[Rfam]
RNA sequence: UAUUCAGCAAUCACUUUUUUACUUUCUUUUUUAUUCCCCCCAUCUAGGGAGGCGGAAUUUCGGUGUAAAAACGAAAGUGAAAAUUCCAGAGCCUCCCUUAGGGAGGCUUUUUUGUA
Numbered sequence: 001u002a003u004u005c006a007g008c009a010a011u012c013a014c015u016u017u018u019u020u021a022c023u024u025u026c027u028u029u030u031u032u033a034u035u036c037c038c039c040c041c042a043u044c045u046a047g048g049g050a051g052g053c054g055g056a057a058u059u060u061c062g063g064u065g066u067a068a069a070a071a072c073g074a075a076a077g078u079g080a081a082a083a084u085u086c087c088a089g090a091g092c093c094u095c096c097c098u099u100a101g102g103g104a105g106g107c108u109u110u111u112u113u114g115u116a
Stems, first nucleotide, its partner, number of pairs: 016083011028071002031068004037052002039048002053062003088110010
Dot-bracket structure: ...............(((((((((((.((.((((..((((......))..))(((....)))..)))).)).)))))))))))....((((((((((...))))))))))......
A member of the RNA family "Phenylalanine leader peptide" from Shewanella violacea, 116 nucleotides long. The organism belongs to Shewanella violacea, within Bacteria. The family's RNA type in Rfam is cis-regulatory leader.